[Rfam]
RNA: Bacillus sRNA ncr1015
Organism: Paenibacillus montanisoli
RNA sequence: UUGUAAGAUGAACUAACUAUGCUCAUUAUUUCGCGCGCAGUCGUGAUUUGAUUAUAUCAUCGUGUCUGUUUUUGCGCAAUAUAAGAAGAACCUGGUCAAUUUGACCAGGUUCUUUUUUGA
Number, nucleotide and partner (000 for none) at each position: 001u000002u000003g000004u000005a000006a000007g000008a000009u000010g000011a000012a000013c000014u000015a000016a000017c000018u000019a000020u000021g000022c000023u000024c000025a000026u000027u000028a000029u000030u000031u000032c000033g073034c000035g071036c000037g069038c068039a065040g000041u000042c062043g061044u000045g000046a000047u000048u000049u000050g000051a000052u000053u000054a000055u000056a000057u000058c000059a000060u000061c043062g042063u000064g000065u039066c000067u000068g038069u037070u000071u035072u000073u033074g000075c000076g000077c000078a000079a000080u000081a000082u000083a000084a116085g115086a114087a113088g112089a111090a110091c109092c108093u107094g106095g105096u000097c000098a000099a000100u000101u000102u000103g000104a000105c095106c094107a093108g092109g091110u090111u089112c088113u087114u086115u085116u084117u000118u000119g000120a000